[Rfam]
RNA: Purine riboswitch aptamer
RNA sequence: AACAACAACAUAAUGUUUGCUCAUAUAGUUUCGGAGAUAUGGUCCGAAAGUUUCUACCAGACAGCCAUGAAUUGUCUGACUAUGGGUGAAAGUGUAUCUAGG
Numbered sequence: 001a002a003c004a005a006c007a008a009c010a011u012a013a014u015g016u017u018u019g020c021u022c023a024u025a026u027a028g029u030u031u032c033g034g035a036g037a038u039a040u041g042g043u044c045c046g047a048a049a050g051u052u053u054c055u056a057c058c059a060g061a062c063a064g065c066c067a068u069g070a071a072u073u074g075u076c077u078g079a080c081u082a083u084g085g086g087u088g089a090a091a092g093u094g095u096a097u098c099u100a101g102g
Stems, first nucleotide, its partner, number of pairs: 018088008029049007058078007